[Rfam]
RNA sequence: CAGUUAUAUUCGCCUGUCGACGAGUGAUAUUGCCGUGCAGUGAUAUUCGGUCAUACCGAGUGAUAUUGCCU
Numbered sequence: 001c002a003g004u005u006a007u008a009u010u011c012g013c014c015u016g017u018c019g020a021c022g023a024g025u026g027a028u029a030u031u032g033c034c035g036u037g038c039a040g041u042g043a044u045a046u047u048c049g050g051u052c053a054u055a056c057c058g059a060g061u062g063a064u065a066u067u068g069c070c071u
Base pairs, nucleotide, nucleotide: 008025009024010023011022012021014019029041030040031039032038045061046060047059048058049057050056051055
RNA: Gut-1 RNA